[Rfam]
The record is a 519-nucleotide sequence from Lasiosphaeris hirsuta, which matches "RNase MRP" in Rfam.
RNase MRP is an enzymatically active ribonucleoprotein with two distinct roles in eukaryotes. In mitochondria it plays a direct role in the initiation of mitochondrial DNA replication. In the nucleus it is involved in precursor rRNA processing, where it cleaves the internal transcribed spacer 1 between 18S and 5.8S rRNAs.
Taxonomically the source falls in Lasiosphaeris (Eukaryota, Dikarya, Pezizomycotina, Sordariales).
RNA sequence: CUCUCGCCCAACAGAUCGCUAUUCGAAGCUCACAAACGGAGAGAGCCUCACCUUCGGGCGUGUGCUCUUUCAACCAACCUGAGCUUUGGGAGAAAGUCCCCGGACACUCGCCGUUUCUCGUCUCUGGCGAGUCUCAGCGGGCUGCGGAAACGCGCCGCCAUAGAAGCACUGCGGCUGAUCUCGGCCGCCUGUCACUUGUUUGUUUGUCCCUUCCCAGCCUAUCGCCAAGUUGGCUGUCAUUCUUUUUACUUUGGGGCUUCGACCAUUCACAUUCCCGGGCCGGAGACCACAUGGACGAAGAUAUGAGUCCGAGUUCUGGCUGCUUGGGGCGGAUGCGCAGUUUCCUCACGGUGGGAGUUGGUCAAUGGUGGGCUGCCGUUGGGCGUCCUGGACUGGAGGCGUCAUGGCUGGCUCGAGAGAUUUCGUCAAGAUUACAUAGAUAUGCGAUUGCUUGUUCACCUUCUCCCUUCGGGGGCGAGGUCAUCAAGUUACUCGACGGGGCUUAUUCUUGGUGCGAGG
Numbered sequence: 001c002u003c004u005c006g007c008c009c010a011a012c013a014g015a016u017c018g019c020u021a022u023u024c025g026a027a028g029c030u031c032a033c034a035a036a037c038g039g040a041g042a043g044a045g046c047c048u049c050a051c052c053u054u055c056g057g058g059c060g061u062g063u064g065c066u067c068u069u070u071c072a073a074c075c076a077a078c079c080u081g082a083g084c085u086u087u088g089g090g091a092g093a094a095a096g097u098c099c100c101c102g103g104a105c106a107c108u109c110g111c112c113g114u115u116u117c118u119c120g121u122c123u124c125u126g127g128c129g130a131g132u133c134u135c136a137g138c139g140g141g142c143u144g145c146g147g148a149a150a151c152g153c154g155c156c157g158c159c160a161u162a163g164a165a166g167c168a169c170u171g172c173g174g175c176u177g178a179u180c181u182c183g184g185c186c187g188c189c190u191g192u193c194a195c196u197u198g199u200u201u202g203u204u205u206g207u208c209c210c211u212u213c214c215c216a217g218c219c220u221a222u223c224g225c226c227a228a229g230u231u232g233g234c235u236g237u238c239a240u241u242c243u244u245u246u247u248a249c250u251u252u253g254g255g256g257c258u259u260c261g262a263c264c265a266u267u268c269a270c271a272u273u274c275c276c277g278g279g280c281c282g283g284a285g286a287c288c289a290c291a292u293g294g295a296c297g298a299a300g301a302u303a304u305g306a307g308u309c310c311g312a313g314u315u316c317u318g319g320c321u322g323c324u325u326g327g328g329g330c331g332g333a334u335g336c337g338c339a340g341u342u343u344c345c346u347c348a349c350g351g352u353g354g355g356a357g358u359u360g361g362u363c364a365a366u367g368g369u370g371g372g373c374u375g376c377c378g379u380u381g382g383g384c385g386u387c388c389u390g391g392a393c394u395g396g397a398g399g400c401g402u403c404a405u406g407g408c409u410g411g412c413u414c415g416a417g418a419g420a421u422u423u424c425g426u427c428a429a430g431a432u433u434a435c436a437u438a439g440a441u442a443u444g445c446g447a448u449u450g451c452u453u454g455u456u457c458a459c460c461u462u463c464u465c466c467c468u469u470c471g472g473g474g475g476c477g478a479g480g481u482c483a484u485c486a487a488g489u490u491a492c493u494c495g496a497c498g499g500g501g502c503u504u505a506u507u508c509u510u511g512g513u514g515c516g517a518g519g
Base pairs, nucleotide, nucleotide: 002519003518004517005516006515007514008512009511010510011509014449015448016447017446018445019444023090024088025087026086027085028084029083039071040070041069042068043067044066045065094504095503096502098501099500100499101498111127112126113125276415277414278413279412280411284409285408287406294403295402296401386397387396388395451488452487453486454485456483